[Rfam]
RNA sequence: GUUUUAUGUGUUAAACGACCGAAGACAGUAAGUGGCAAAUGCCUUAAUUUCUUACCGAGGAAGUUCCUAAGUGAUAAACAACAGGAAUGUAUCUCUAUGUCUAAGGUGACAUGGGGGUUUUUUUAUUGGAUA
Dot-bracket structure: ...........................(((((.(((....))).......)))))....................................((((((((((......))))))))))...............

This 132-nucleotide sequence from Ruoffia halotolerans belongs to the Rfam family "Ribosomal protein L10 leader".
Taxonomically the source falls in Ruoffia (Bacteria, Bacilli, Lactobacillales, Aerococcaceae).
A search with the family's covariance model found it, with a score of 77 bits.
A reference for the family is Zengel and Lindahl (1994), "Diverse mechanisms for regulating ribosomal protein synthesis in Escherichia coli", Prog Nucleic Acid Res Mol Biol.
Rfam classes the family as a cis-regulatory leader.